[Rfam]
A member of the RNA family "Burkholderia sRNA 54" from Caballeronia novacaledonica, 81 nucleotides long. It scores 58 bits against the family's covariance model. Lineage of the source: Bacteria > Pseudomonadota > Betaproteobacteria > Burkholderiales > Caballeronia. The base pairs follow the family's consensus structure, which was predicted with RNAfold. The literature on the family includes a 2017 paper in Sci Rep by Sass et al., "Identification of small RNAs abundant in Burkholderia cenocepacia biofilms reveal putative regulators with a potential role in carbon and iron metabolism". Rfam's curators write: Identified by RNA-seq, RACE and Northern blot. Strongly expressed in biofilm.

RNA sequence: GGGUCUCUCAGGUUCUCGCACGGCCCUCGGAAUUGCAAGAAUCUUUCGGACGACCCGGGCCGCGUCGGGUCGGCUUUUUUC
Numbered sequence: 001g002g003g004u005c006u007c008u009c010a011g012g013u014u015c016u017c018g019c020a021c022g023g024c025c026c027u028c029g030g031a032a033u034u035g036c037a038a039g040a041a042u043c044u045u046u047c048g049g050a051c052g053a054c055c056c057g058g059g060c061c062g063c064g065u066c067g068g069g070u071c072g073g074c075u076u077u078u079u080u081c
Stems, first nucleotide, its partner, number of pairs: 010044007018036002024030002049074001051072008